[Rfam]
RNA sequence: CGCAGCACCCAUAAGAGGAGUAGUUCCCCAUCCGGGAGCUACUUUACCAUAUUCCGAAUUA
Numbered sequence: 001c002g003c004a005g006c007a008c009c010c011a012u013a014a015g016a017g018g019a020g021u022a023g024u025u026c027c028c029c030a031u032c033c034g035g036g037a038g039c040u041a042c043u044u045u046a047c048c049a050u051a052u053u054c055c056g057a058a059u060u061a
Stems, first nucleotide, its partner, number of pairs: 017045011

Record summary: Rfam assigns this 61-nucleotide sequence to the family "Plastid-psbN 5UTR RNA". Rfam classes the family as a cis-regulatory element. The sequence is in the family's curated seed alignment. The family has 63 seed sequences and 2,345 matches in Rfam 15.1.